This 129-nucleotide RNA sequence from Habropoda laboriosa belongs to the Rfam family "Small Cajal body specific RNA 8". It is annotated as a small Cajal body RNA. About the family: scaRNAs are a specific class of small nuclear RNAs which localise to the Cajal bodies and guide the modification of RNA polymerase II transcribed spliceosomal RNAs U1, U2, U4, U5 and U12. U92 belong to the H/ACA box class of guide RNAs as it has the predicted hairpin-hinge-hairpin-tail structure, conserved H/ACA-box motifs and is found associated with GAR1. A search with the family's covariance model found it, with a score of 76 bits. The base pairs follow the family's consensus structure, which is taken from published work. The literature on the family includes a 2002 paper in EMBO J by Darzacq et al., "Cajal body-specific small nuclear RNAs: a novel class of 2'-O-methylation and pseudouridylation guide RNAs".
[Rfam]
Nucleotides: 129
Base pairs, nucleotide, nucleotide: 002055003054004053005052006051007050015042016041017040018039019035021033022032067123068122069121070120071119072118073117081108082107083106086103088101089100
Number, partner (000 for none) and nucleotide at each position: 001000a002055g003054g004053a005052a006051g007050a008000a009000u010000g011000a012000u013000a014000c015042a016041c017040g018039a019035g020000a021033u022032u023000c024000g025000a026000a027000c028000a029000a030000u031000u032022a033021a034000g035019c036000c037000u038000u039018u040017c041016g042015u043000c044000a045000c046000a047000a048000c049000u050007u051006c052005u053004u054003c055002c056000u057000a058000u059000a060000a061000a062000a063000a064000a065000a066000a067123u068122u069121g070120u071119c072118c073117u074000c075000u076000g077000a078000u079000g080000a081108c082107u083106g084000u085000a086103a087000u088101u089100u090000g091000u092000g093000a094000a095000g096000u097000u098000u099000u100089a101088a102000u103086u104000u105000a106083c107082a108081g109000a110000c111000a112000g113000a114000u115000a116000c117073g118072g119071g120070g121069c122068a123067a124000a125000c126000a127000g128000a129000a